[Rfam]
RNA sequence: CUGUAAUGCCCUCAUUGGGUGUUUCCUCCCUAGACUUGACCGCGCCCCGUGCGCGGUUUUUUUUGACAGGG
Dot-bracket structure: .......((((.....))))...................((((((.....))))))...............
This 71-nucleotide RNA from Shinella fusca belongs to the Rfam family "Makes More Granules Regulator RNA (mmgR)". The family is grouped with related families in Rfam's "suhB sRNA clan". By type it is a small RNA.